Rfam assigns this 227-nucleotide part of an RNA from Methylophilales bacterium HTCC2181 to the family "Bacterial large subunit ribosomal RNA". The base pairs follow the family's consensus structure, which is taken from published work. On this family, see Yusupov et al., Science 2001: "Crystal structure of the ribosome at 5.5 A resolution". Lineage of the source: Bacteria > Pseudomonadati > Pseudomonadota > Betaproteobacteria > Nitrosomonadales.
RNA sequence: GACUUACAUUCAGUAGCAAGCUUAACCGAUAGGGGAGGCGUAGCGAAAGCGAGUCCUAAUAGGGCGAUUCAGUUGCUGGGUGUAGACCCGAAACCAAGUGAUCUAUCCAUGGCCAGGAUGAAGGUGCAGUAACAUGUACUGGAGGUCCGAACCCACAAAUGUUGAAAAAUUUGGGGAUGAGCUGUGGAUAGGGGUGAAAGGCUAAACAAACUUGGAGAUAGCUGGUU
Numbered sequence: 001g002a003c004u005u006a007c008a009u010u011c012a013g014u015a016g017c018a019a020g021c022u023u024a025a026c027c028g029a030u031a032g033g034g035g036a037g038g039c040g041u042a043g044c045g046a047a048a049g050c051g052a053g054u055c056c057u058a059a060u061a062g063g064g065c066g067a068u069u070c071a072g073u074u075g076c077u078g079g080g081u082g083u084a085g086a087c088c089c090g091a092a093a094c095c096a097a098g099u100g101a102u103c104u105a106u107c108c109a110u111g112g113c114c115a116g117g118a119u120g121a122a123g124g125u126g127c128a129g130u131a132a133c134a135u136g137u138a139c140u141g142g143a144g145g146u147c148c149g150a151a152c153c154c155a156c157a158a159a160u161g162u163u164g165a166a167a168a169a170u171u172u173g174g175g176g177a178u179g180a181g182c183u184g185u186g187g188a189u190a191g192g193g194g195u196g197a198a199a200g201g202c203u204a205a206a207c208a209a210a211c212u213u214g215g216a217g218a219u220a221g222c223u224g225g226u227u
Stems, first nucleotide, its partner, number of pairs: 005084013020039004026033002043050002053065004087225002090222001094215006103191011114179001116148004123140006152176003156173005193203003